Small nucleolar RNA R38: an 86-nucleotide sequence from Rachicladosporium sp. CCFEE 5018. Rfam links the family to the GO terms nucleolus and RNA processing. It scores 50 bits against the family's covariance model. Taxonomically the source falls in Rachicladosporium (Eukaryota, Opisthokonta, Fungi, leotiomyceta). snoR38 is a C/D box small nucleolar RNA conserved across yeast, human, Arabidopsis and rice. It is encoded in the intron of elongation factor-1 gamma in both pombe and cerevisiae. snoR38 guides the methylation of 2'-O-ribose sites in 28S rRNA. A reference for the family is Qu et al. (2001), "Identification of 10 novel snoRNA gene clusters from Arabidopsis thaliana", Nucleic Acids Res. The family has 19 seed sequences and 2,295 matches in Rfam 15.1.
RNA sequence: GCAUGCAAUGAUGAGAAUUAUUCACAUAUACAGUUAUCCCUGUCUGAAGACUAUUGUUGAGACUUAUUCACACUCUGACAGCAUGA
Numbered sequence: 001g002c003a004u005g006c007a008a009u010g011a012u013g014a015g016a017a018u019u020a021u022u023c024a025c026a027u028a029u030a031c032a033g034u035u036a037u038c039c040c041u042g043u044c045u046g047a048a049g050a051c052u053a054u055u056g057u058u059g060a061g062a063c064u065u066a067u068u069c070a071c072a073c074u075c076u077g078a079c080a081g082c083a084u085g086a
Stems, first nucleotide, its partner, number of pairs: 002085005